[Rfam]
RNA: ZMP/ZTP riboswitch aptamer (pfl RNA motif)
RNA sequence: GGGGACCUACGCGACUGGCGCGGUCAAGGUGGAUCACCACCGGGGAGCGAACGACAGUCCGGACACCGCGCGCCUGGGUGGACGGG
Numbered sequence: 001g002g003g004g005a006c007c008u009a010c011g012c013g014a015c016u017g018g019c020g021c022g023g024u025c026a027a028g029g030u031g032g033a034u035c036a037c038c039a040c041c042g043g044g045g046a047g048c049g050a051a052c053g054a055c056a057g058u059c060c061g062g063a064c065a066c067c068g069c070g071c072g073c074c075u076g077g078g079u080g081g082a083c084g085g086g
Stems, first nucleotide, its partner, number of pairs: 004055001006053001008051001010049003015044002017074005029040004064080004